[Rfam]
RNA: MIR8565 microRNA precursor family
RNA sequence: CCCACACUCAUGUGUAGAACCCCAAAUGAUCACUAUUAAAUUUGGCACAGAUAUCUAGAAAAGUUAUCACAUGGGUGUGGGACUUGACUUUUCUAAAAGUCUGUGUCAAAUUUAAUGGUGAUCCUUUGGGGUCUUACACACAUGGGUGUGGG
Numbered sequence: 001c002c003c004a005c006a007c008u009c010a011u012g013u014g015u016a017g018a019a020c021c022c023c024a025a026a027u028g029a030u031c032a033c034u035a036u037u038a039a040a041u042u043u044g045g046c047a048c049a050g051a052u053a054u055c056u057a058g059a060a061a062a063g064u065u066a067u068c069a070c071a072u073g074g075g076u077g078u079g080g081g082a083c084u085u086g087a088c089u090u091u092u093c094u095a096a097a098a099g100u101c102u103g104u105g106u107c108a109a110a111u112u113u114a115a116u117g118g119u120g121a122u123c124c125u126u127u128g129g130g131g132u133c134u135u136a137c138a139c140a141c142a143u144g145g146g147u148g149u150g151g152g
Stems, first nucleotide, its partner, number of pairs: 002151011013138005019132008028123003032119021054097001056095011067080005